Shown here is a 111-nucleotide RNA from Flexivirga aerilata, a member of the family "SAM (S-adenosyl methionine) riboswitch aptamer". The family has 40 seed sequences and 2,360 matches in Rfam 15.1. The base pairs follow the family's consensus structure, which is taken from published work. A reference for the family is Weinberg et al. (2008), "The aptamer core of SAM-IV riboswitches mimics the ligand-binding site of SAM-I riboswitches", RNA.

RNA sequence: GGUCACGAGAGACGACGCGAAGCCCUGGCUGGUCGUCCGGCAACCCUCCGCCGCGGUGGGGUGCUCCAGGUGAUGACCCGGCGGCAUCACCCGAUGCCGCAAGCGCGAAUC
Numbered sequence: 001g002g003u004c005a006c007g008a009g010a011g012a013c014g015a016c017g018c019g020a021a022g023c024c025c026u027g028g029c030u031g032g033u034c035g036u037c038c039g040g041c042a043a044c045c046c047u048c049c050g051c052c053g054c055g056g057u058g059g060g061g062u063g064c065u066c067c068a069g070g071u072g073a074u075g076a077c078c079c080g081g082c083g084g085c086a087u088c089a090c091c092c093g094a095u096g097c098c099g100c101a102a103g104c105g106c107g108a109a110u111c
Stems, first nucleotide, its partner, number of pairs: 001078004009038001011037006021030002039065003044061003048056002081100008
Dot-bracket structure: ((((....(.((((((....((......)).)))))))(((..(((.((.....))..))).))).........))))..((((((((....))))))))...........
The source organism's lineage runs through Bacteria, Bacillati, Actinomycetes, Micrococcales and Flexivirga.